The family of this 116-nucleotide RNA from Notechis scutatus is "U5 spliceosomal RNA". Lineage of the source: Eukaryota > Tetrapoda > Squamata > Bifurcata > Notechis.

[Rfam]
RNA sequence: AUACUCUGGUUUCUCGUCAGAUUGUAUAAAUCUUUCACUUUUACUAAAGAUUUCCUUGGAGAGGAACAUUUAUGAGUCUUUUACUAAUUUUUUGAGGCAAGAGCCAUAGUGGUGCA
Numbered sequence: 001a002u003a004c005u006c007u008g009g010u011u012u013c014u015c016g017u018c019a020g021a022u023u024g025u026a027u028a029a030a031u032c033u034u035u036c037a038c039u040u041u042u043a044c045u046a047a048a049g050a051u052u053u054c055c056u057u058g059g060a061g062a063g064g065a066a067c068a069u070u071u072a073u074g075a076g077u078c079u080u081u082u083a084c085u086a087a088u089u090u091u092u093u094g095a096g097g098c099a100a101g102a103g104c105c106a107u108a109g110u111g112g113u114g115c116a
Stems, first nucleotide, its partner, number of pairs: 003077004009067007017059003028053008097115003102110001